The record is a 107-nucleotide RNA from Clostridium thermosuccinogenes, which matches "SAM riboswitch aptamer (S box leader)" in Rfam. Pairs were carried over by alignment from the consensus structure, which is taken from published work.
[Rfam]
RNA sequence: ACCUUAUCAAGAGAGGUGGAGGGACUGGGCCCUAUGAAACCCGGCAACCGGCUUAUUGCAUCGGUGCCAAUUCCUGCUGGCUGUAUAUGCAGUCGGAAAGAUGAGGA
Numbered sequence: 001a002c003c004u005u006a007u008c009a010a011g012a013g014a015g016g017u018g019g020a021g022g023g024a025c026u027g028g029g030c031c032c033u034a035u036g037a038a039a040c041c042c043g044g045c046a047a048c049c050g051g052c053u054u055a056u057u058g059c060a061u062c063g064g065u066g067c068c069a070a071u072u073c074c075u076g077c078u079g080g081c082u083g084u085a086u087a088u089g090c091a092g093u094c095g096g097a098a099a100g101a102u103g104a105g106g107a
Stems, first nucleotide, its partner, number of pairs: 002106007013042001015041003021032003026076004043068004048064002051059002072099001077096006
A search with the family's covariance model found it, with a score of 86 bits.